Shown here is a 77-nucleotide sequence from Crocodylus porosus, a member of the family "Mammalian CPEB3 ribozyme".

RNA sequence: AGUCACAAGUUCGUGGCCAUAGUAGAAGCGCUUACAAUACAGCGCUGUCAGAUUCCAAUAAAUCUGCAAAUACUGCU
Dot-bracket structure: ............[[.[[...(((((.((.(.......).).]]]]...((((((......))))))....).)))))
NCBI's taxonomy places the organism under Eukaryota, Euteleostomi, Dipnotetrapodomorpha, Amniota, Crocodylus. Rfam describes the family as follows. The mammalian CPEB3 ribozyme is a self cleaving RNA located in the second intron of the CPEB3 gene which belongs to a family of genes regulating messenger RNA polyadenylation. Gene Ontology term of the family: RNA nuclease activity. The base pairs follow the family's consensus structure, which is taken from published work.